This 97-nucleotide RNA from Paenibacillus polymyxa belongs to the Rfam family "Glycine riboswitch aptamer". The organism belongs to Paenibacillus polymyxa, within Bacteria.
RNA sequence: CAUCUCUGGAGAGCAUCCGUGAAAAGAGCGGAUCACCCAAGGGGAAACCUGGUUCACACCGGGGUAACUUUCUGGUAUCAAGGACAGAGCUGAAAGA
Numbered sequence: 001c002a003u004c005u006c007u008g009g010a011g012a013g014c015a016u017c018c019g020u021g022a023a024a025a026g027a028g029c030g031g032a033u034c035a036c037c038c039a040a041g042g043g044g045a046a047a048c049c050u051g052g053u054u055c056a057c058a059c060c061g062g063g064g065u066a067a068c069u070u071u072c073u074g075g076u077a078u079c080a081a082g083g084a085c086a087g088a089g090c091u092g093a094a095a096g097a
Stems, first nucleotide, its partner, number of pairs: 001092002004089005015033006035076003039071001042070003048063006